[Rfam]
RNA sequence: ACUCUUCAUGUUCCCUCAAAGGCUUCCAGUAUUCCCGUAUUCAUUCAUAUAUACCUAGCUAGAAUUGAUUGAAUGCUGGAUGUCUUUGAAGGAACUUGGAAGCU
Numbered sequence: 001a002c003u004c005u006u007c008a009u010g011u012u013c014c015c016u017c018a019a020a021g022g023c024u025u026c027c028a029g030u031a032u033u034c035c036c037g038u039a040u041u042c043a044u045u046c047a048u049a050u051a052u053a054c055c056u057a058g059c060u061a062g063a064a065u066u067g068a069u070u071g072a073a074u075g076c077u078g079g080a081u082g083u084c085u086u087u088g089a090a091g092g093a094a095c096u097u098g099g100a101a102g103c104u
Base pairs, nucleotide, nucleotide: 006099007098008097010095011094012093013092014091016089017088018087019086020085021084022083023082025080026079027078028077029076030075031074032073033072034071

The family of this 104-nucleotide RNA sequence from Glycine max is "MIR862_2 microRNA precursor family". The family has 3 seed sequences and 22 matches in Rfam 15.1. Pairs were carried over by alignment from the consensus structure, which was predicted with RNAalifold.